[Rfam]
About this RNA: This 159-nucleotide RNA from Affinirhizobium straminoryzae belongs to the Rfam family "FMN riboswitch aptamer (RFN element)". Taxonomically the source falls in Affinirhizobium (Bacteria, Pseudomonadati, Pseudomonadota, Rhizobiaceae).
RNA sequence: CAGCGUUCUCGGGGCGGGGUGAAAAUCCCCACCGGCGGUAGGCAACCCGGAAAGGGGUCGCAAGCCCGCAAGCGCCCGUGCCGAUCUGUCGGCGUGGGGUCAGCAGAUCCGGUCGAACUCCGGAGCCGACGGUUACAGUCCGGAUGGAAGAGAGCGGGG
Numbered sequence: 001c002a003g004c005g006u007u008c009u010c011g012g013g014g015c016g017g018g019g020u021g022a023a024a025a026u027c028c029c030c031a032c033c034g035g036c037g038g039u040a041g042g043c044a045a046c047c048c049g050g051a052a053a054g055g056g057g058u059c060g061c062a063a064g065c066c067c068g069c070a071a072g073c074g075c076c077c078g079u080g081c082c083g084a085u086c087u088g089u090c091g092g093c094g095u096g097g098g099g100u101c102a103g104c105a106g107a108u109c110c111g112g113u114c115g116a117a118c119u120c121c122g123g124a125g126c127c128g129a130c131g132g133u134u135a136c137a138g139u140c141c142g143g144a145u146g147g148a149a150g151a152g153a154g155c156g157g158g159g
Stems, first nucleotide, its partner, number of pairs: 004156007017029003031139002033128002035069004064126002072104002108124005130142003